[Rfam]
RNA sequence: AAUACUACACUAACCAAAGCACUGACUUGAACUGUGAAUGCAGUAAGUGCUUGCUGUUGGUGUAGUGUUG
Dot-bracket structure: ...((((((((.((..(((((((.(((..............))).)))))))...)).))))))))....
RNA: miR-430 microRNA precursor family
Organism: Salarias fasciatus